[Rfam]
Nucleotides: 143
Stems, first nucleotide, its partner, number of pairs: 011129003015125002019061004026054004033048006063082007085108010110120002
Number, partner (000 for none) and nucleotide at each position: 001000a002000u003000a004000a005000u006000a007000u008000c009000u010000g011129g012128a013127c014000u015125c016124c017000g018000a019061g020060c021059u022058u023000g024000u025000a026054u027053u028052c029051c030000u031000a032000a033048g034047u035046u036045u037044a038043g039000u040000u041000u042000u043038u044037u045036a046035a047034a048033u049000a050000u051029g052028g053027a054026a055000g056000c057000a058022a059021a060020g061019c062000c063082u064081g065080a066079a067078u068077a069076a070000g071000u072000u073000u074000u075000c076069u077068u078067g079066u080065u081064c082063a083000c084000a085108g086107g087106a088105u089104a090103g091102u092101a093100g094099a095000g096000a097000a098000a099094u100093u101092u102091g103090c104089u105088a106087u107086c108085c109000c110120c111119u112000c113000g114000u115000a116000u117000u118000u119111a120110g121000a122000a123000a124016g125015g126000u127013g128012u129011c130000c131000u132000u133000g134000g135000g136000g137000c138000u139000u140000a141000u142000a143000a
Rfam assigns this 143-nucleotide RNA from Pasteurella bettyae to the family "Molybdenum/Tungsten riboswitch aptamer (Moco RNA motif)". Lineage of the source: Bacteria > Pseudomonadati > Pseudomonadota > Pasteurellaceae > Pasteurella bettyae. On this family, see Weinberg et al., Nucleic Acids Res 2007: "Identification of 22 candidate structured RNAs in bacteria using the CMfinder comparative genomics pipeline". The family has 160 seed sequences and 1,248 matches in Rfam 15.1.